RNA sequence: AUUUUUUUUGUUUAUCCUGUUCGUAUAUCCCAGAGAUAAGGUCUAGGGGUCUCUACCAGGAGCCGUAAAUUCCUGACUACGAGUAGGUAUGCUUUGGCA
Numbered sequence: 001a002u003u004u005u006u007u008u009u010g011u012u013u014a015u016c017c018u019g020u021u022c023g024u025a026u027a028u029c030c031c032a033g034a035g036a037u038a039a040g041g042u043c044u045a046g047g048g049g050u051c052u053c054u055a056c057c058a059g060g061a062g063c064c065g066u067a068a069a070u071u072c073c074u075g076a077c078u079a080c081g082a083g084u085a086g087g088u089a090u091g092c093u094u095u096g097g098c099a
Base pairs, nucleotide, nucleotide: 018085019084020083021082022081023080024079025078029048030047031046032044033043034042057075058074059073060072061071062070